[Rfam]
RNA sequence: GUGAAUAUAGUUUACAAAAAACAUUAGACUGUGAAUCUGACAACAGGAAAUAAACCUCCUUAUUCACC
Numbered sequence: 001g002u003g004a005a006u007a008u009a010g011u012u013u014a015c016a017a018a019a020a021a022c023a024u025u026a027g028a029c030u031g032u033g034a035a036u037c038u039g040a041c042a043a044c045a046g047g048a049a050a051u052a053a054a055c056c057u058c059c060u061u062a063u064u065c066a067c068c
Base pairs, nucleotide, nucleotide: 001067002066003065004064005063006062007061010022011021012020013019024040025039026038027037028036045060046059047058048057